[Rfam]
RNA: Alphaproteobacterial ar15
RNA sequence: AGCUGAUGCACGCGAUGGUUUCCUCCCAUUCCAUCGUAUCAGCUGUUCCCCUCCGAAGGUUUUGACCUUCACACCUAAAGGGCUUCGGUUUUCCGAUGGCCCUGUUUU
Numbered sequence: 001a002g003c004u005g006a007u008g009c010a011c012g013c014g015a016u017g018g019u020u021u022c023c024u025c026c027c028a029u030u031c032c033a034u035c036g037u038a039u040c041a042g043c044u045g046u047u048c049c050c051c052u053c054c055g056a057a058g059g060u061u062u063u064g065a066c067c068u069u070c071a072c073a074c075c076u077a078a079a080g081g082g083c084u085u086c087g088g089u090u091u092u093c094c095g096a097u098g099g100c101c102c103u104g105u106u107u108u
Stems, first nucleotide, its partner, number of pairs: 001044005007038003015034004055070006079103006085096004